[Rfam]
RNA sequence: AUUCUGUCACAACGGCUUCCUGACGUGGCAGAGAUUUUUAAUGGAGCA
Numbered sequence: 001a002u003u004c005u006g007u008c009a010c011a012a013c014g015g016c017u018u019c020c021u022g023a024c025g026u027g028g029c030a031g032a033g034a035u036u037u038u039u040a041a042u043g044g045a046g047c048a
Stems, first nucleotide, its partner, number of pairs: 004031007013022002015047003019044002
RNA: SAM/SAH riboswitch aptamer